[Rfam]
RNA: Small Cajal body specific RNA 1
RNA sequence: GUGCACUUGAUACGAGCCAGGAUACCCACGCUUGUCUGUUCUUUCAGAUGAGUGUAUGCCAUGGUAUCUGGGUUUCCAUGAGUGCCACAUUAACCCAACCUUAAGCAUUUAAGCUCAGAGUGCAGAGAGACACCUUGAGUUAUAACUUAUGGUACAGAU
Numbered sequence: 001g002u003g004c005a006c007u008u009g010a011u012a013c014g015a016g017c018c019a020g021g022a023u024a025c026c027c028a029c030g031c032u033u034g035u036c037u038g039u040u041c042u043u044u045c046a047g048a049u050g051a052g053u054g055u056a057u058g059c060c061a062u063g064g065u066a067u068c069u070g071g072g073u074u075u076c077c078a079u080g081a082g083u084g085c086c087a088c089a090u091u092a093a094c095c096c097a098a099c100c101u102u103a104a105g106c107a108u109u110u111a112a113g114c115u116c117a118g119a120g121u122g123c124a125g126a127g128a129g130a131c132a133c134c135u136u137g138a139g140u141u142a143u144a145a146c147u148u149a150u151g152g153u154a155c156a157g158a159u
Stems, first nucleotide, its partner, number of pairs: 003085006015074004020069007027058002030055001031052001033050006099152001118133001120131002134151001136149005